[Rfam]
RNA sequence: ACUCAACGCUAAUCAAUUAAGAAGGGUGAGUUUAGAUUGUUAAAUCGUGCUGAUUUAUUCAGAUUUUUGAUCAGUCUUGUAGCCCUAAACCUGUUAAAAUGGAGUUU
Numbered sequence: 001a002c003u004c005a006a007c008g009c010u011a012a013u014c015a016a017u018u019a020a021g022a023a024g025g026g027u028g029a030g031u032u033u034a035g036a037u038u039g040u041u042a043a044a045u046c047g048u049g050c051u052g053a054u055u056u057a058u059u060c061a062g063a064u065u066u067u068u069g070a071u072c073a074g075u076c077u078u079g080u081a082g083c084c085c086u087a088a089a090c091c092u093g094u095u096a097a098a099a100u101g102g103a104g105u106u107u
Stems, first nucleotide, its partner, number of pairs: 023086005034077005043068002050062004

Source information: A member of the RNA family "6S-Flavo RNA", 107 nucleotides long.